Rfam assigns this 109-nucleotide RNA sequence to the family "skipping-rope RNA". The family's RNA type in Rfam is small RNA. The base pairs follow the family's consensus structure, which is taken from published work.
Nucleotides: 109
Base pairs, nucleotide, nucleotide: 001109002108003107004106005105006104007103008102011030012029013028014027015026021095022094023093024092033071034070035069083101084100085099086098087097
Number, partner (000 for none) and nucleotide at each position: 001109a002108c003107u004106a005105a006104g007103a008102g009000a010000g011030g012029u013028g014027g015026a016000a017000a018000a019000a020000u021095g022094g023093a024092c025000a026015u027014c028013c029012a030011u031000g032000a033071g034070c035069c036000u037000u038000a039000u040000a041000c042000c043000c044000u045000u046000u047000g048000g049000c050000a051000g052000a053000g054000a055000u056000g057000c058000a059000g060000g061000g062000c063000a064000g065000u066000a067000u068000u069035g070034g071033u072000a073000u074000a075000a076000g077000a078000g079000a080000g081000a082000u083101g084100c085099g086098g087097g088000g089000c090000g091000a092024g093023u094022c095021c096000u097087c098086c099085c100084g101083c102008c103007u104006c105005u106004u107003a108002g109001u